Rfam assigns this 78-nucleotide RNA sequence from Notiomystis cincta to the family "mir-458 microRNA precursor family". Rfam links the family to the GO terms miRNA-mediated post-transcriptional gene silencing and RISC complex. For this family Rfam cites "Conservation of small RNA pathways in platypus" (Murchison et al., Genome Res, 2008). Lineage of the source: Eukaryota > Euteleostomi > Dipnotetrapodomorpha > Archelosauria > Notiomystis. The match comes from Rfam's covariance-model search (74 bits).
[Rfam]
RNA sequence: GUGCUUAUGGCAGUACCAUUCCAAGAGCUAUGACAAGGAGACUGUUUAUAGCUCUGGAAAUGGCGCUGCCAUCGGCAC
Dot-bracket structure: .(((..(((.(((..(((((...((((((((................))))))))...)))))..))).)))..))).